[Rfam]
Shown here is a 140-nucleotide RNA from Mangrovibacillus cuniculi, a member of the family "c-di-AMP riboswitch aptamer (ydaO/yuaA leader)".
RNA sequence: AACUGAAACUGGCUUAAUCCUGCAUAGCAGGAACGGAGGAACCGAUUAAUUGGGGUUAAUUUUACGUAUGUAAAAGGGAUGAAGUACUCUUUCGCCAUCCUACCCGUCAGCUAACUUCGUAGGCUAAAGCGAGGGAGGUC
Numbered sequence: 001a002a003c004u005g006a007a008a009c010u011g012g013c014u015u016a017a018u019c020c021u022g023c024a025u026a027g028c029a030g031g032a033a034c035g036g037a038g039g040a041a042c043c044g045a046u047u048a049a050u051u052g053g054g055g056u057u058a059a060u061u062u063u064a065c066g067u068a069u070g071u072a073a074a075a076g077g078g079a080u081g082a083a084g085u086a087c088u089c090u091u092u093c094g095c096c097a098u099c100c101u102a103c104c105c106g107u108c109a110g111c112u113a114a115c116u117u118c119g120u121a122g123g124c125u126a127a128a129g130c131g132a133g134g135g136a137g138g139u140c
Stems, first nucleotide, its partner, number of pairs: 011125004018032003033120006043052002053105003061074004077100004